[Rfam]
RNA: Group I catalytic intron
Nucleotides: 248
Stems, first nucleotide, its partner, number of pairs: 007023005013017001029040003052187004057182002062095006071086005096134002102129003109123001138227001140226005190213009233246005
Number, partner (000 for none) and nucleotide at each position: 001000a002000u003000u004000c005000u006000u007023g008022g009021g010020u011019a012000a013017a014000a015000u016000g017013u018000g019011u020010g021009c022008c023007c024000c025000c026000c027000u028000u029040g030039a031038u032000c033000g034000u035000g036000a037000g038031a039030u040029c041000a042000u043000g044000u045000g046000g047000a048000a049000a050000c051000a052187u053186c054185g055184g056000g057182u058181g059000a060000a061000u062095u063094g064093c065092a066091a067090g068000a069000a070000c071086u072085c073084c074083a075082a076000u077000a078000a079000c080000u081000a082075u083074u084073g085072g086071a087000c088000a089000a090067u091066u092065u093064g094063c095062a096134g097133c098000g099000a100000a101000g102129c103128g104127u105000a106000u107000a108000u109123c110000a111000g112000u113000g114000u115000u116000u117000u118000a119000a120000u121000a122000g123109g124000u125000a126000u127104a128103c129102g130000a131000a132000c133097g134096u135000u136000c137000a138227a139000c140226g141225a142224c143223u144222a145000a146000u147000c148000a149000g150000u151000g152000a153000g154000c155000u156000a157000c158000a159000c160000u161000a162000g163000c164000a165000a166000u167000a168000a169000u170000c171000u172000g173000g174000a175000c176000a177000c178000g179000a180000g181058u182057g183000c184055c185054c186053g187052a188000c189000a190213a191212c192211a193210u194209u195208a196207a197206u198205a199000a200000a201000u202000c203000c204000g205198u206197a207196u208195u209194g210193a211192u212191g213190u214000u215000g216000a217000u218000g219000a220000c221000a222144u223143a224142g225141u226140c227138u228000g229000a230000a231000c232000a233246a234245u235244u236243c237242c238000g239000u240000a241000a242237g243236g244235g245234a246233u247000u248000g